[Rfam]
Rfam assigns this 268-nucleotide sequence from Candidatus Brocadia fulgida to the family "Bacterial large signal recognition particle RNA".
By type it is a non-coding RNA gene.
RNA sequence: CCGUGCUAGAUGGGGAGCUAGCGGUUCCUUGUAACCUGCAACCCGCUAUAGCAGGAUCAAUCGCUUUUUCGAGGACCCACAGAUCAUGAGCCUUGCCGAUGUAAGGGGUGAUGAAGGCCGGACCUCAUGCAAUAAGAGAUUGUGCGAACCUGGUCAGGUGCGGAAGCAAGCAGCCAUAAGCAUAUAUCCUUAUGUGCCGUGAGUCAGUCUGGUCUGAGCCUACUGCAUAGGCAAACCCAUGGGAAUGGGAACGAAAAAAAGUGCACGG
Numbered sequence: 001c002c003g004u005g006c007u008a009g010a011u012g013g014g015g016a017g018c019u020a021g022c023g024g025u026u027c028c029u030u031g032u033a034a035c036c037u038g039c040a041a042c043c044c045g046c047u048a049u050a051g052c053a054g055g056a057u058c059a060a061u062c063g064c065u066u067u068u069u070c071g072a073g074g075a076c077c078c079a080c081a082g083a084u085c086a087u088g089a090g091c092c093u094u095g096c097c098g099a100u101g102u103a104a105g106g107g108g109u110g111a112u113g114a115a116g117g118c119c120g121g122a123c124c125u126c127a128u129g130c131a132a133u134a135a136g137a138g139a140u141u142g143u144g145c146g147a148a149c150c151u152g153g154u155c156a157g158g159u160g161c162g163g164a165a166g167c168a169a170g171c172a173g174c175c176a177u178a179a180g181c182a183u184a185u186a187u188c189c190u191u192a193u194g195u196g197c198c199g200u201g202a203g204u205c206a207g208u209c210u211g212g213u214c215u216g217a218g219c220c221u222a223c224u225g226c227a228u229a230g231g232c233a234a235a236c237c238c239a240u241g242g243g244a245a246u247g248g249g250a251a252c253g254a255a256a257a258a259a260a261g262u263g264c265a266c267g268g
Stems, first nucleotide, its partner, number of pairs: 001268006009058003012030008035055005064261006073252001076249002082246001084242005090236001094233002097230001099228004105224002107220003115215009124203006130194002133192004141184005151176004159168003
Dot-bracket structure: ((((((..(((((((((((...))))))))....(((((...........)))))))).....((((((...(..((....(.(((((.(...((.(.((((..(((((.....(((((((((((((((((.((((....(((((.....((((....(((....)))....))))...)))))....))))))...))))))...)))))))))..)))..)))))).).))..).)))))...).))..)...)))))).))))))

Its family is annotated with signal recognition particle, plasma membrane targeting and SRP-dependent cotranslational protein targeting to membrane, signal sequence recognition in the Gene Ontology. The literature on the family includes a 2002 paper in Nucleic Acids Res by Regalia et al., "Prediction of signal recognition particle RNA genes".